[Rfam]
RNA sequence: UACUGCCAAACCCUGUCUCCACCUCCACGUGGUUAUCGCUGGGAGUUCUUUCUCAAUGAGAAACUGCAGACGGAGAAGG
Numbered sequence: 001u002a003c004u005g006c007c008a009a010a011c012c013c014u015g016u017c018u019c020c021a022c023c024u025c026c027a028c029g030u031g032g033u034u035a036u037c038g039c040u041g042g043g044a045g046u047u048c049u050u051u052c053u054c055a056a057u058g059a060g061a062a063a064c065u066g067c068a069g070a071c072g073g074a075g076a077a078g079g
Base pairs, nucleotide, nucleotide: 012079013078014077016075018073019072021033022032023031044065045064046063047062049060050059052058
Dot-bracket structure: ...........(((.(.((.(((.......)))..........((((.((.(.....))).))))......)).).)))

This 79-nucleotide RNA from Hermetia illucens belongs to the Rfam family "drz-agam-1 ribozyme". NCBI's taxonomy places the organism under Eukaryota, Pancrustacea, Altocrustacea, Panorpida, Hermetia.